[Rfam]
RNA sequence: CGAAUGGAGCCGACGUAUCUAGUGCGUAUUCAGCCUUCUGGGCGCGUGAUUGGUGUUUGUGCAUUGCCGCAAGGUGUGCCUGGCGCUAUUGUCGCGUGUUCGGUUGGUGCAUUUGCGUACGGAGUGCGCCGGGUUGUGUGGUGUUGUCGGACGAUGCGCGUUUAGAGGACCCGGGCUUCGGCGCUGGGAACCCUGGGCGUGUGGAGUUCGGUUGGCGCUGCGCAGCUUUGUGGAGACGUGGGUUUUUCGCGUGCCGCGGUGUCGACAGGCUCGGUUCGGGUGGUACACAUGUGUGCAGCCCUUAUGGGGUCGGUCGGUGUUGUGGUGUGCUCUGCGUUCUUCCCGGUGUUCAGUCGGUGACCCAUUCGACCCGUCUUGAAACACGG
Dot-bracket structure: (((((((.((((.......(.(((((((.....................................................................................))))))).)....(((((((................................................................................................................................................................................................................)))))))......))))...)))))))..((((........))))
Numbered sequence: 001c002g003a004a005u006g007g008a009g010c011c012g013a014c015g016u017a018u019c020u021a022g023u024g025c026g027u028a029u030u031c032a033g034c035c036u037u038c039u040g041g042g043c044g045c046g047u048g049a050u051u052g053g054u055g056u057u058u059g060u061g062c063a064u065u066g067c068c069g070c071a072a073g074g075u076g077u078g079c080c081u082g083g084c085g086c087u088a089u090u091g092u093c094g095c096g097u098g099u100u101c102g103g104u105u106g107g108u109g110c111a112u113u114u115g116c117g118u119a120c121g122g123a124g125u126g127c128g129c130c131g132g133g134u135u136g137u138g139u140g141g142u143g144u145u146g147u148c149g150g151a152c153g154a155u156g157c158g159c160g161u162u163u164a165g166a167g168g169a170c171c172c173g174g175g176c177u178u179c180g181g182c183g184c185u186g187g188g189a190a191c192c193c194u195g196g197g198c199g200u201g202u203g204g205a206g207u208u209c210g211g212u213u214g215g216c217g218c219u220g221c222g223c224a225g226c227u228u229u230g231u232g233g234a235g236a237c238g239u240g241g242g243u244u245u246u247u248c249g250c251g252u253g254c255c256g257c258g259g260u261g262u263c264g265a266c267a268g269g270c271u272c273g274g275u276u277c278g279g280g281u282g283g284u285a286c287a288c289a290u291g292u293g294u295g296c297a298g299c300c301c302u303u304a305u306g307g308g309g310u311c312g313g314u315c316g317g318u319g320u321u322g323u324g325g326u327g328u329g330c331u332c333u334g335c336g337u338u339c340u341u342c343c344c345g346g347u348g349u350u351c352a353g354u355c356g357g358u359g360a361c362c363c364a365u366u367c368g369a370c371c372c373g374u375c376u377u378g379a380a381a382c383a384c385g386g
Stems, first nucleotide, its partner, number of pairs: 001368007009358004020122001022120007127348007371386004